Annotation
Small nucleolar RNA SNORA77: a 128-nucleotide RNA from Scleropages formosus. The match comes from Rfam's covariance-model search (54 bits). NCBI's taxonomy places the organism under Eukaryota, Deuterostomia, Vertebrata, Teleostei, Scleropages. ACA63 (SNORA77) is a member of the H/ACA class of snoRNAs that guide the sites of modification of uridines to pseudouridines. This snoRNA was identified by computational screening and its expression in mouse experimentally verified by Northern blot and primer extension analysis. Gene Ontology terms of the family: nucleolus and RNA processing. The literature on the family includes a 2006 paper in RNA by Schattner et al., "A computational screen for mammalian pseudouridylation guide H/ACA RNAs". Rfam classes the family as an H/ACA-box small nucleolar RNA. Pairs were carried over by alignment from the consensus structure, which was predicted with RNAalifold.
[Rfam]
RNA sequence: GCAGACUCACUCUGUUCCAUGCUGACCGGUCCAGCUUGGUACUUUUUCUGUCUGCUAUAUUAGAUUGCAGAAUGUAGUAAACACCAGCCUUUUCAUAGGCAAGUGUUGGUAUGUUCUGAAACAUUUGA
Numbered sequence: 001g002c003a004g005a006c007u008c009a010c011u012c013u014g015u016u017c018c019a020u021g022c023u024g025a026c027c028g029g030u031c032c033a034g035c036u037u038g039g040u041a042c043u044u045u046u047u048c049u050g051u052c053u054g055c056u057a058u059a060u061u062a063g064a065u066u067g068c069a070g071a072a073u074g075u076a077g078u079a080a081a082c083a084c085c086a087g088c089c090u091u092u093u094c095a096u097a098g099g100c101a102a103g104u105g106u107u108g109g110u111a112u113g114u115u116c117u118g119a120a121a122c123a124u125u126u127g128a
Stems, first nucleotide, its partner, number of pairs: 001055006014042002017039003022034003068118009078108002082105003